[Rfam]
About this RNA: TPP riboswitch aptamer (THI element): a 101-nucleotide RNA sequence from Parahaliea mediterranea. Rfam's curators write: Vitamin B(1) in its active form thiamin pyrophosphate (TPP) is an essential coenzyme that is synthesised by coupling of pyrimidine and thiazole moieties in bacteria.
RNA sequence: CUGUAACUCUCGGGGUGCUGCCAAGGCAGCUGAGAUCGCGCAAGCGGACCCGUGAACCUGAUCCGGUUAGUACCGGCGUAGGGAAGAGUGAUAGUAAACAU
Numbered sequence: 001c002u003g004u005a006a007c008u009c010u011c012g013g014g015g016u017g018c019u020g021c022c023a024a025g026g027c028a029g030c031u032g033a034g035a036u037c038g039c040g041c042a043a044g045c046g047g048a049c050c051c052g053u054g055a056a057c058c059u060g061a062u063c064c065g066g067u068u069a070g071u072a073c074c075g076g077c078g079u080a081g082g083g084a085a086g087a088g089u090g091a092u093a094g095u096a097a098a099c100a101u
Base pairs, nucleotide, nucleotide: 006089007088008087009086010085011052012051013050014049017030018029019028020027021026037046038045039044057082058081059080060079063076064075065074066073
Dot-bracket structure: .....(((((((((..(((((....)))))......(((....)))..))))....((((..((((......))))..))))..)))))............

The family has 115 seed sequences and 16,130 matches in Rfam 15.1. NCBI's taxonomy places the organism under Bacteria, Pseudomonadati, Pseudomonadota, Cellvibrionales, Parahaliea.